[Rfam]
Overview:
The family of this 102-nucleotide RNA sequence from Fukomys damarensis is "Small nucleolar RNA SNORD124". By type it is a C/D-box small nucleolar RNA. On this family, see Yang et al., Nucleic Acids Res 2006: "snoSeeker: an advanced computational package for screening of guide and orphan snoRNA genes in the human genome".
RNA sequence: UGGACCCCAGGAAGGGAUGAUGUUCUAGCUGAUACUCAAGAAAAGGAUUCUGAGCCUCUGCUUUGAAGGAGCCCUCUGCUCCCUGACCUUCCUUGAACGAGU
Numbered sequence: 001u002g003g004a005c006c007c008c009a010g011g012a013a014g015g016g017a018u019g020a021u022g023u024u025c026u027a028g029c030u031g032a033u034a035c036u037c038a039a040g041a042a043a044a045g046g047a048u049u050c051u052g053a054g055c056c057u058c059u060g061c062u063u064u065g066a067a068g069g070a071g072c073c074c075u076c077u078g079c080u081c082c083c084u085g086a087c088c089u090u091c092c093u094u095g096a097a098c099g100a101g102u
Stems, first nucleotide, its partner, number of pairs: 009093007